[Rfam]
RNA sequence: UGAGAGAACUCUGGAGAAGGAACUCGGCAAAUUGACACCGUAACUUCGGGAUAAGGUGUGCCCUGAGUAGGUGAAGUCCCUAGCGGAUGGAGCUGGAAGGGGUUGCAAAAGAAAUGGUGGCUGCGACUGUUUAAUAAAAACACAGCACUCUGCAAACACGAAAGUGGACGUAUAGGGUGUGACGCCUGCCCGGUGCUGGAAGAUUAAAUGAUGGGGUGCAAGCUCUUGAUUGAAGUCCCAGUAAACGGCGGCCGUAACUAUAACGGUCCUAAGGUAGCGAAAUUCCUUGUCGGGUAAGUUCCGACCUGCACGAAUGGCGUAACGAUGGCCACACUGUCUCCUCCAGAGACUCA
Numbered sequence: 001u002g003a004g005a006g007a008a009c010u011c012u013g014g015a016g017a018a019g020g021a022a023c024u025c026g027g028c029a030a031a032u033u034g035a036c037a038c039c040g041u042a043a044c045u046u047c048g049g050g051a052u053a054a055g056g057u058g059u060g061c062c063c064u065g066a067g068u069a070g071g072u073g074a075a076g077u078c079c080c081u082a083g084c085g086g087a088u089g090g091a092g093c094u095g096g097a098a099g100g101g102g103u104u105g106c107a108a109a110a111g112a113a114a115u116g117g118u119g120g121c122u123g124c125g126a127c128u129g130u131u132u133a134a135u136a137a138a139a140a141c142a143c144a145g146c147a148c149u150c151u152g153c154a155a156a157c158a159c160g161a162a163a164g165u166g167g168a169c170g171u172a173u174a175g176g177g178u179g180u181g182a183c184g185c186c187u188g189c190c191c192g193g194u195g196c197u198g199g200a201a202g203a204u205u206a207a208a209u210g211a212u213g214g215g216g217u218g219c220a221a222g223c224u225c226u227u228g229a230u231u232g233a234a235g236u237c238c239c240a241g242u243a244a245a246c247g248g249c250g251g252c253c254g255u256a257a258c259u260a261u262a263a264c265g266g267u268c269c270u271a272a273g274g275u276a277g278c279g280a281a282a283u284u285c286c287u288u289g290u291c292g293g294g295u296a297a298g299u300u301c302c303g304a305c306c307u308g309c310a311c312g313a314a315u316g317g318c319g320u321a322a323c324g325a326u327g328g329c330c331a332c333a334c335u336g337u338c339u340c341c342u343c344c345a346g347a348g349a350c351u352c353a
Stems, first nucleotide, its partner, number of pairs: 001353004009348008018339003035059005044049001060103005080096005104109001117332007124324002128142003145180008153170001157166003183319004188249003193246002195242005202237003208231001213226005250268006269273001279306001289305006
Record summary: The family of this 353-nucleotide part of an RNA from Chlorochromatium aggregatum is "Bacterial large subunit ribosomal RNA". The sequence is in the family's curated seed alignment. Pairs were carried over by alignment from the consensus structure, which is taken from published work.